[Rfam]
RNA sequence: GGCAACUUGCCCCAAAAGGGGGUGUUACUUUUGAAAGAUCUCAUCACAACAGUCAUUGCACCAAUUUUUGUUGGGCUAGUCAUUGAACUAGUUUCUCAUUGGUUAGACGAGAAAGAUAAUGACUAACAAGUUGCCACUAACCACACCUUUGUUUUUGUAGCUGCAACAAAAACAA
Numbered sequence: 001g002g003c004a005a006c007u008u009g010c011c012c013c014a015a016a017a018g019g020g021g022g023u024g025u026u027a028c029u030u031u032u033g034a035a036a037g038a039u040c041u042c043a044u045c046a047c048a049a050c051a052g053u054c055a056u057u058g059c060a061c062c063a064a065u066u067u068u069u070g071u072u073g074g075g076c077u078a079g080u081c082a083u084u085g086a087a088c089u090a091g092u093u094u095c096u097c098a099u100u101g102g103u104u105a106g107a108c109g110a111g112a113a114a115g116a117u118a119a120u121g122a123c124u125a126a127c128a129a130g131u132u133g134c135c136a137c138u139a140a141c142c143a144c145a146c147c148u149u150u151g152u153u154u155u156u157g158u159a160g161c162u163g164c165a166a167c168a169a170a171a172a173c174a175a
Base pairs, nucleotide, nucleotide: 001135002134003133004132005131006130007129008128010021011020012019013018023035025033051124052123053122054121055120056119059115061073063071076091077090078089079088080087092106093105096102097101148170149169150168151167152166
Rfam assigns this 175-nucleotide RNA sequence from Enterococcus canis to the family "Enterococcus sRNA B11". The family's consensus secondary structure was predicted with RNAfold. Taxonomically the source falls in Enterococcus (Bacteria, Bacillati, Bacillota, Bacilli).